Rfam assigns this 33-nucleotide RNA to the family "DUF805b RNA".
RNA sequence: GGGGCGGAUGCCGAAAAGCCCAAAGAGUAGGCG
Numbered sequence: 001g002g003g004g005c006g007g008a009u010g011c012c013g014a015a016a017a018g019c020c021c022a023a024a025g026a027g028u029a030g031g032c033g
Stems, first nucleotide, its partner, number of pairs: 002021004010032003

Rfam's curators put it in the seed alignment.